[Rfam]
RNA sequence: GCUGACAGAUAAACUUUUUGUUAGUGUUAUGUUUCAUUUAAAAUGUAAGACGAACAAAAAGUUUUUCUGUUAGCUG
Numbered sequence: 001g002c003u004g005a006c007a008g009a010u011a012a013a014c015u016u017u018u019u020g021u022u023a024g025u026g027u028u029a030u031g032u033u034u035c036a037u038u039u040a041a042a043a044u045g046u047a048a049g050a051c052g053a054a055c056a057a058a059a060a061g062u063u064u065u066u067c068u069g070u071u072a073g074c075u076g
Base pairs, nucleotide, nucleotide: 003072004071005070006069008067009066011064012063013062014061015060016059017058018057020055024051027048028047029046030045031044032043
Rfam assigns this 76-nucleotide RNA sequence from Chanos chanos to the family "mir-208 microRNA precursor family". Its family is annotated with miRNA-mediated post-transcriptional gene silencing and RISC complex in the Gene Ontology. The source organism's lineage runs through Eukaryota, Opisthokonta, Actinopteri, Chanidae and Chanos. The family's consensus secondary structure was predicted with RNAalifold. On this family, see Lagos-Quintana et al., RNA 2003: "New microRNAs from mouse and human".